RNA sequence: AAGGCAGUGGUUCGUAACCAUCCCACUCAAAAAAACUAGGAGCGU
Numbered sequence: 001a002a003g004g005c006a007g008u009g010g011u012u013c014g015u016a017a018c019c020a021u022c023c024c025a026c027u028c029a030a031a032a033a034a035a036c037u038a039g040g041a042g043c044g045u
Stems, first nucleotide, its partner, number of pairs: 006027005015038002
A member of the RNA family "PreQ1 (pre queuosine) riboswitch aptamer" from Weissella soli, 45 nucleotides long. A reference for the family is Schroeder et al. (2020), "Analysis of a preQ1-I riboswitch in effector-free and bound states reveals a metabolite-programmed nucleobase-stacking spine that controls gene regulation", Nucleic Acids Res. This family is a bacterial riboswitch that binds to the metabolite preQ1, an intermediate in the biosynthesis of the modified nucleoside queuosine from GTP. One example of this riboswitch is located in the leader of the Bacillus subtilis ykvJKLM (queCDEF) operon which encodes four genes necessary for queuosine production. PreQ1 binding to the riboswitch aptamer is thought to induce premature transcription termination within the leader to down-regulate expression of these genes. The pairing is the family consensus, mapped onto this sequence. Its family is annotated with queuosine biosynthetic process in the Gene Ontology.